[Rfam]
RNA: Group II catalytic intron D1-D4-3
RNA sequence: UCCAUCGUGAGGUGGAAUCUGAAGGAAGCUCGAUGAGCAAACCACUGCACUGAUGAACAAAAAUCGACUGUAAGGCCAAGGGGAGAGGAUAAGGUUGCUGUACAAACUGAAGUCCAAUACUACUCGAAACAAACCUUGGUAAAGUCGGCAGUGACAUGGUGGGAAAGUUAUCGUC
Number, nucleotide and partner (000 for none) at each position: 001u016002c015003c014004a013005u012006c011007g000008u000009g000010a000011g006012g005013u004014g003015g002016a001017a000018u000019c000020u000021g000022a000023a000024g000025g000026a000027a000028g000029c000030u000031c000032g175033a174034u173035g172036a171037g168038c167039a000040a000041a000042c162043c161044a160045c159046u158047g157048c153049a152050c151051u150052g149053a000054u000055g000056a000057a000058c000059a000060a000061a000062a000063a000064u148065c147066g146067a145068c144069u143070g000071u000072a000073a000074g000075g140076c139077c138078a000079a136080g000081g000082g000083g000084a000085g135086a000087g115088g114089a113090u112091a000092a000093g108094g107095u106096u105097g000098c000099u000100g000101u000102a000103c000104a000105a096106a095107c094108u093109g000110a000111a000112g090113u089114c088115c087116a000117a000118u000119a000120c000121u000122a000123c000124u000125c000126g000127a000128a000129a000130c000131a000132a000133a000134c000135c085136u079137u000138g077139g076140u075141a000142a000143a069144g068145u067146c066147g065148g064149c052150a051151g050152u049153g048154a000155c000156a000157u047158g046159g045160u044161g043162g042163g000164a000165a000166a000167g038168u037169u000170a000171u036172c035173g034174u033175c032